This 172-nucleotide RNA belongs to the Rfam family "Group II catalytic intron D1-D4-3". On this family, see Chu et al., EMBO J 2001: "Control of branch-site choice by a group II intron". Gene Ontology term of the family: Group II intron splicing.
[Rfam]
RNA sequence: GCCACCGUGAGGUGGAAUCUGAAGGAAGCCGCAGGCAAAGCGCUGGUUCGACGAACAGGAAGUGCAUAUGAGGCGGCCAUGCUGGGUGAGGAGGCAAAUAUCUUCAAAGCCCAAAUCUGACACGGAAAGCAUGGUCGUAGAUGCGACGGAUAUAAGCGUGAAAGUGAGUGUG
Numbered sequence: 001g002c003c004a005c006c007g008u009g010a011g012g013u014g015g016a017a018u019c020u021g022a023a024g025g026a027a028g029c030c031g032c033a034g035g036c037a038a039a040g041c042g043c044u045g046g047u048u049c050g051a052c053g054a055a056c057a058g059g060a061a062g063u064g065c066a067u068a069u070g071a072g073g074c075g076g077c078c079a080u081g082c083u084g085g086g087u088g089a090g091g092a093g094g095c096a097a098a099u100a101u102c103u104u105c106a107a108a109g110c111c112c113a114a115a116u117c118u119g120a121c122a123c124g125g126a127a128a129g130c131a132u133g134g135u136c137g138u139a140g141a142u143g144c145g146a147c148g149g150a151u152a153u154a155a156g157c158g159u160g161a162a163a164g165u166g167a168g169u170g171u172g
Base pairs, nucleotide, nucleotide: 002015003014004013005012006011030170031169032168035165036164040159041158042157043156044155046151047150048149049148050147063145064144065143066142067141073138074137075136077134078133079132080131081130082129083128084112085111086110087109090105091104092103093102